About this RNA
Shown here is a 156-nucleotide RNA, a member of the family "RT-3 RNA". It is one of the family's seed sequences.
RNA sequence: AAUCGGUGUACGAAACCGGGACGUGUUCCCGGUUUCAAGCCGAGGGGGAUGAGCCUCAGUAACAGCGGCCGUAAAUAGGCCGGAAAACUGAAAAAACAAUUGGACGGGUAGAGUUUGGUAGGUGUCCGCUUAGGGCAUUCGAAGAAGUCGGGCCCG
Numbered sequence: 001a002a003u004c005g006g007u008g009u010a011c012g013a014a015a016c017c018g019g020g021a022c023g024u025g026u027u028c029c030c031g032g033u034u035u036c037a038a039g040c041c042g043a044g045g046g047g048g049a050u051g052a053g054c055c056u057c058a059g060u061a062a063c064a065g066c067g068g069c070c071g072u073a074a075a076u077a078g079g080c081c082g083g084a085a086a087a088c089u090g091a092a093a094a095a096a097c098a099a100u101u102g103g104a105c106g107g108g109u110a111g112a113g114u115u116u117g118g119u120a121g122g123u124g125u126c127c128g129c130u131u132a133g134g135g136c137a138u139u140c141g142a143a144g145a146a147g148u149c150g151g152g153c154c155c156g
Stems, first nucleotide, its partner, number of pairs: 003043005012036003017031005045055002056091005066082005105156005111149002114146003121139007